[Rfam]
RNA sequence: CUCCAGGGCAACCGUGGCUUUAGAUUGUUACUGUGGUUGUGAGCUGGUAACAGUCUACAGCCAUGGUCGCUUGGGCCAG
Numbered sequence: 001c002u003c004c005a006g007g008g009c010a011a012c013c014g015u016g017g018c019u020u021u022a023g024a025u026u027g028u029u030a031c032u033g034u035g036g037u038u039g040u041g042a043g044c045u046g047g048u049a050a051c052a053g054u055c056u057a058c059a060g061c062c063a064u065g066g067u068c069g070c071u072u073g074g075g076c077c078a079g
Stems, first nucleotide, its partner, number of pairs: 012066002015063004023055010